Overview
Small nucleolar RNA R12: a 79-nucleotide RNA from Rosa chinensis. Pairs were carried over by alignment from the consensus structure, which was predicted with PFOLD. snoR12 is a C/D box small nucleolar RNA, which acts as a methylation guide for 25S ribosomal RNA in plants. snoR12 has been alternatively named snoZ44 in Arabidopsis and snoZ131 in rice. Rfam links the family to the GO terms RNA processing and nucleolus. The literature on the family includes a 2003 paper in Nucleic Acids Res by Chen et al., "The high diversity of snoRNAs in plants: identification and comparative study of 120 snoRNA genes from Oryza sativa". Lineage of the source: Eukaryota > Viridiplantae > Spermatophyta > Rosales > Rosa.
RNA sequence: UGUUAUAUGAUGAAAAGAAUCAUUCGGAUUCCCAAUGAUAGCAUAUAUAUGAUAUCACAACCAGCUACUUCUGAUCACA
Numbered sequence: 001u002g003u004u005a006u007a008u009g010a011u012g013a014a015a016a017g018a019a020u021c022a023u024u025c026g027g028a029u030u031c032c033c034a035a036u037g038a039u040a041g042c043a044u045a046u047a048u049a050u051g052a053u054a055u056c057a058c059a060a061c062c063a064g065c066u067a068c069u070u071c072u073g074a075u076c077a078c079a
Stems, first nucleotide, its partner, number of pairs: 001079003005075001